[Rfam]
The record is a 295-nucleotide RNA sequence from Mucor saturninus, which matches "Nuclear RNase P" in Rfam. It scores 118 bits against the family's covariance model. For this family Rfam cites "Phylogenetic-comparative analysis of the eukaryal ribonuclease P RNA" (Frank et al., RNA, 2000). NCBI's taxonomy places the organism under Eukaryota, Mucoromycotina, Mucoromycetes, Mucorineae, Mucor. Rfam classes the family as a ribozyme. From the family's description: Ribonuclease P (RNase P) is a ubiquitous endoribonuclease, found in archaea, bacteria and eukarya as well as chloroplasts and mitochondria. Its best characterised activity is the generation of mature 5'-ends of tRNAs by cleaving the 5'-leader elements of precursor-tRNAs. Cellular RNase Ps are ribonucleoproteins. RNA from bacterial RNase Ps retains its catalytic activity in the absence of the protein subunit, i.e. it is a ribozyme. The family has 116 seed sequences and 3,848 matches in Rfam 15.1.
RNA sequence: GGAGGUGUCAAGCUUAUGUAUACGGGCAAACAUACUAAAAGAUUUAUUCUUUAAUAAUACCCGUGGGAAGGUCUGAGGAAAACCGCUAAAUAUCUUUGCUGGAUAACCUGUGAAUAUGGGGGCAGUGCUACCAGAAAUUAUAUCUUCUUGAUCCGUUAGUACCGUUGAGGAUUCUUAAUCUGAUGGGUUGGGUCAAGUUGUUUACUGUAAUGGCCUGUGGGUGGUAAUGCUAUGAAGUGCAAUACAUGAGACUGAUUUUUAUCAGUAACUCAAUUCAGACUACUCUGUCGCCUCC
Numbered sequence: 001g002g003a004g005g006u007g008u009c010a011a012g013c014u015u016a017u018g019u020a021u022a023c024g025g026g027c028a029a030a031c032a033u034a035c036u037a038a039a040a041g042a043u044u045u046a047u048u049c050u051u052u053a054a055u056a057a058u059a060c061c062c063g064u065g066g067g068a069a070g071g072u073c074u075g076a077g078g079a080a081a082a083c084c085g086c087u088a089a090a091u092a093u094c095u096u097u098g099c100u101g102g103a104u105a106a107c108c109u110g111u112g113a114a115u116a117u118g119g120g121g122g123c124a125g126u127g128c129u130a131c132c133a134g135a136a137a138u139u140a141u142a143u144c145u146u147c148u149u150g151a152u153c154c155g156u157u158a159g160u161a162c163c164g165u166u167g168a169g170g171a172u173u174c175u176u177a178a179u180c181u182g183a184u185g186g187g188u189u190g191g192g193u194c195a196a197g198u199u200g201u202u203u204a205c206u207g208u209a210a211u212g213g214c215c216u217g218u219g220g221g222u223g224g225u226a227a228u229g230c231u232a233u234g235a236a237g238u239g240c241a242a243u244a245c246a247u248g249a250g251a252c253u254g255a256u257u258u259u260u261a262u263c264a265g266u267a268a269c270u271c272a273a274u275u276c277a278g279a280c281u282a283c284u285c286u287g288u289c290g291c292c293u294c295c
Stems, first nucleotide, its partner, number of pairs: 001295004009287002013250007022064005038052005073278005081222001083220002091105005107120005122218004127214003141204002251266006